[Rfam]
A member of the RNA family "Small nucleolar RNA ACA64" from Chiloscyllium punctatum, 131 nucleotides long. The family has 30 seed sequences and 9,537 matches in Rfam 15.1. It scores 71 bits against the family's covariance model.
RNA sequence: ACACUCUGAAAAUUACCUAUGGCACUGCCAAUUACCAUGGGUAAGAUUAGUGUGCCUACAUUAAAUGGUACACUAAAGCUUAUUGCCUACUUUUGUUGUUUGUGGUCAAUAAAACCCGUGUGCCAAUAAAU
Numbered sequence: 001a002c003a004c005u006c007u008g009a010a011a012a013u014u015a016c017c018u019a020u021g022g023c024a025c026u027g028c029c030a031a032u033u034a035c036c037a038u039g040g041g042u043a044a045g046a047u048u049a050g051u052g053u054g055c056c057u058a059c060a061u062u063a064a065a066u067g068g069u070a071c072a073c074u075a076a077a078g079c080u081u082a083u084u085g086c087c088u089a090c091u092u093u094u095g096u097u098g099u100u101u102g103u104g105g106u107c108a109a110u111a112a113a114a115c116c117c118g119u120g121u122g123c124c125a126a127u128a129a130a131u
Base pairs, nucleotide, nucleotide: 006052009048010047013044014043015042016041021036022035024033067124069122070121071120072119073118080112081111082110083109084108088102089101